A member of the RNA family "U12 minor spliceosomal RNA" from Betta splendens, 153 nucleotides long. The organism belongs to Betta, within Eukaryota. The family has 62 seed sequences and 2,106 matches in Rfam 15.1.
[Rfam]
RNA sequence: ACGCCUUAAACUGAUGAGUAAGGAAAAUAACGACGCGGGGUGACGCCCGCGUCCUCGUUCAUAUAACGAGUGCAUUUUUGGAGGGGCUCAGGUCUGACUGAUCAGGUGAUUCGCCUACUUUGCGAGAUGCCGUACAGGACCAGGACCUGCCCC
Numbered sequence: 001a002c003g004c005c006u007u008a009a010a011c012u013g014a015u016g017a018g019u020a021a022g023g024a025a026a027a028u029a030a031c032g033a034c035g036c037g038g039g040g041u042g043a044c045g046c047c048c049g050c051g052u053c054c055u056c057g058u059u060c061a062u063a064u065a066a067c068g069a070g071u072g073c074a075u076u077u078u079u080g081g082a083g084g085g086g087c088u089c090a091g092g093u094c095u096g097a098c099u100g101a102u103c104a105g106g107u108g109a110u111u112c113g114c115c116u117a118c119u120u121u122g123c124g125a126g127a128u129g130c131c132g133u134a135c136a137g138g139a140c141c142a143g144g145a146c147c148u149g150c151c152c153c
Stems, first nucleotide, its partner, number of pairs: 004023005032053008054070005083153005090148004094143003099136002105131004110126005